[Rfam]
RNA sequence: UCGUUAUUAAGAAAGGUGGAGGGAAUAGACCCUGCGAAACCUUAGCAACCCUUUGUUCAUGCUGAAUUUGUUUCAGUAUCGCACAAAGAAGGUGCUAAAUUCUACUGUUCACACUGAACUUGUUUCAGUAUAACAGAGAGAUAACUC
Numbered sequence: 001u002c003g004u005u006a007u008u009a010a011g012a013a014a015g016g017u018g019g020a021g022g023g024a025a026u027a028g029a030c031c032c033u034g035c036g037a038a039a040c041c042u043u044a045g046c047a048a049c050c051c052u053u054u055g056u057u058c059a060u061g062c063u064g065a066a067u068u069u070g071u072u073u074c075a076g077u078a079u080c081g082c083a084c085a086a087a088g089a090a091g092g093u094g095c096u097a098a099a100u101u102c103u104a105c106u107g108u109u110c111a112c113a114c115u116g117a118a119c120u121u122g123u124u125u126c127a128g129u130a131u132a133a134c135a136g137a138g139a140g141a142u143a144a145c146u147c
Base pairs, nucleotide, nucleotide: 003145004144005143006142007141008140013043014042015041016040017039021032022031023030026104027103028102029101044096045095046094047093049092050091051088052087053086054085055084056083100139105136106135107134108133109132

A member of the RNA family "SAM riboswitch aptamer (S box leader)" from Tenacibaculum sp. SZ-18, 147 nucleotides long. NCBI's taxonomy places the organism under Bacteria, Pseudomonadati, Bacteroidota, Flavobacteriales, Tenacibaculum. Rfam links the family to the GO term regulation of gene expression.